[Rfam]
RNA sequence: GCCCCGGUAGCUCAGUUGGUAGAGCAGGUGACUCUUAAUCACUCGGUCCCAGGUUCGAGCCCUGGCCGGGGCA
Numbered sequence: 001g002c003c004c005c006g007g008u009a010g011c012u013c014a015g016u017u018g019g020u021a022g023a024g025c026a027g028g029u030g031a032c033u034c035u036u037a038a039u040c041a042c043u044c045g046g047u048c049c050c051a052g053g054u055u056c057g058a059g060c061c062c063u064g065g066c067c068g069g070g071g072c073a
Base pairs, nucleotide, nucleotide: 001072002071003070004069005068006067007066010025011024012023013022027043028042029041030040031039049065050064051063052062053061
RNA: tRNA